Description: A member of the RNA family "U4atac minor spliceosomal RNA" from Neogobius melanostomus, 127 nucleotides long. The base pairs follow the family's consensus structure, which is taken from published work. It scores 96 bits against the family's covariance model. About the family: U4atac is an essential component of the minor U12-type spliceosome complex which is required for removal of the rarer class of eukaryotic introns (AT-AC, U12-type). The literature on the family includes a 2005 paper in RNA by Lorkovic et al., "Evolutionary conservation of minor U12-type spliceosome between plants and humans". It is annotated as a spliceosomal small nuclear RNA.
RNA sequence: ACUUUCCUUGUCAUGGGGUGAGUGAGCUGCUCAAUGAACGUGUAGUGAGAGUAGCCCUGCUGACACCAUAUCAACACUUACGCAUCACCUGGACUCCGGUCUGGGCUAUGGUGCAAUUUUUGGAACC
Numbered sequence: 001a002c003u004u005u006c007c008u009u010g011u012c013a014u015g016g017g018g019u020g021a022g023u024g025a026g027c028u029g030c031u032c033a034a035u036g037a038a039c040g041u042g043u044a045g046u047g048a049g050a051g052u053a054g055c056c057c058u059g060c061u062g063a064c065a066c067c068a069u070a071u072c073a074a075c076a077c078u079u080a081c082g083c084a085u086c087a088c089c090u091g092g093a094c095u096c097c098g099g100u101c102u103g104g105g106c107u108a109u110g111g112u113g114c115a116a117u118u119u120u121u122g123g124a125a126c127c
Base pairs, nucleotide, nucleotide: 006018007017008016009015022060023059024058026055027054028053029052030051031050032049038046039045082114083113084112085111086110087109088105089104091102092101093100094099